[Rfam]
This 128-nucleotide sequence from Hemibagrus wyckioides belongs to the Rfam family "Small nucleolar RNA SNORA55".
Rfam links the family to the GO terms nucleolus and RNA processing.
From the family's description: ACA55 is a member of the H/ACA class of snoRNA that guide the sites of modification of uridines to pseudouridines.
NCBI's taxonomy places the organism under Eukaryota, Deuterostomia, Teleostomi, Siluriformes, Hemibagrus.
RNA sequence: GCACUCCAGCAAACCCUGUCCUCUUUCAUUGGUGGAUCUGGGUAAAAGUAGUGCAAGAGUGACUCAGAGUAUAUCCAGAUGAGCUUCUGUCACUGUUAGAGCUCGUCCCUACAGCCUCUGAAACAGUC
Number, nucleotide and partner (000 for none) at each position: 001g054002c053003a052004c051005u050006c000007c000008a000009g000010c000011a000012a000013a043014c042015c041016c040017u000018g038019u000020c000021c035022u000023c000024u000025u000026u000027c000028a000029u000030u000031g000032g000033u000034g000035g021036a000037u000038c018039u000040g016041g015042g014043u013044a000045a000046a000047a000048g000049u000050a005051g004052u003053g002054c001055a000056a000057g000058a000059g000060u000061g000062a000063c000064u121065c120066a119067g118068a117069g115070u000071a000072u000073a000074u000075c000076c000077a000078g107079a106080u105081g104082a103083g102084c101085u000086u000087c099088u098089g097090u000091c000092a000093c000094u000095g000096u000097u089098a088099g087100a000101g084102c083103u082104c081105g080106u079107c078108c000109c000110u000111a000112c000113a000114g000115c069116c000117u068118c067119u066120g065121a064122a000123a000124c000125a000126g000127u000128c000

It scores 52 bits against the family's covariance model.